[Rfam]
Rfam assigns this 74-nucleotide RNA sequence from Anabarilius grahami to the family "mir-126 microRNA precursor family". The family has 37 seed sequences and 1,407 matches in Rfam 15.1. Pairs were carried over by alignment from the consensus structure, which was predicted with RNAalifold.

RNA sequence: CCACGGUGCAUUAUUACUCACGGUACGAGUUUGAGUCUGGCCUAGCGCGUACCAAAAGUAAUAAUGGACUGUGA
Dot-bracket structure: ........((((((((((...((((((.(................).))))))...))))))))))........
Numbered sequence: 001c002c003a004c005g006g007u008g009c010a011u012u013a014u015u016a017c018u019c020a021c022g023g024u025a026c027g028a029g030u031u032u033g034a035g036u037c038u039g040g041c042c043u044a045g046c047g048c049g050u051a052c053c054a055a056a057a058g059u060a061a062u063a064a065u066g067g068a069c070u071g072u073g074a
Stems, first nucleotide, its partner, number of pairs: 009066010022053006029046001